[Rfam]
Record summary
Y RNA: a 113-nucleotide sequence from Pan troglodytes. Y RNAs are components of the Ro ribonucleoprotein particle (Ro RNP), in association with Ro60 and La proteins. The Y RNAs and Ro60 and La proteins are well conserved, but the function of the Ro RNP is not known. In humans the RNA component can be one of four small RNAs -- hY1, hY3, hY4 and hY5. These small RNAs are predicted to fold into a conserved secondary structure containing three stem structures. Rfam classes the family as a non-coding RNA gene. The base pairs follow the family's consensus structure, which is taken from published work. A search with the family's covariance model found it, with a score of 50 bits.
RNA sequence: GGCUGGUGUGAAGGUCGUGAGUUAUCUCAGUUGAUUGUUCACAGCCAGUUACAGAUCAAACUCCUUGUUCUACUCUUUCACCCCUUCUCACUACUGUAGUUGGCUAGUCUUAA
Numbered sequence: 001g002g003c004u005g006g007u008g009u010g011a012a013g014g015u016c017g018u019g020a021g022u023u024a025u026c027u028c029a030g031u032u033g034a035u036u037g038u039u040c041a042c043a044g045c046c047a048g049u050u051a052c053a054g055a056u057c058a059a060a061c062u063c064c065u066u067g068u069u070c071u072a073c074u075c076u077u078u079c080a081c082c083c084c085u086u087c088u089c090a091c092u093a094c095u096g097u098a099g100u101u102g103g104c105u106a107g108u109c110u111u112a113a
Stems, first nucleotide, its partner, number of pairs: 001109007010101002014097002017091005044074001047071002